[Rfam]
Nucleotides: 098
Base pairs, nucleotide, nucleotide: 020084021083022082024080025079026078027077028076029075030071031070032069033068034067035066036065037064038063041061042060043059044058045057
Number, partner (000 for none) and nucleotide at each position: 001000u002000u003000g004000u005000g006000u007000u008000g009000g010000u011000c012000c013000u014000g015000g016000g017000c018000g019000u020084g021083g022082g023000c024080c025079c026078c027077u028076a029075u030071c031070g032069a033068u034067g035066u036065u037064g038063c039000c040000u041061c042060u043059g044058c045057u046000c047000c048000g049000c050000u051000u052000c053000a054000g055000u056000c057045a058044g059043u060042a061041g062000u063038g064037c065036a066035a067034u068033a069032u070031u071030g072000c073000u074000u075029a076028u077027a078026g079025g080024g081000u082022c083021u084020c085000a086000c087000c088000u089000c090000c091000a092000g093000g094000a095000g096000a097000a098000a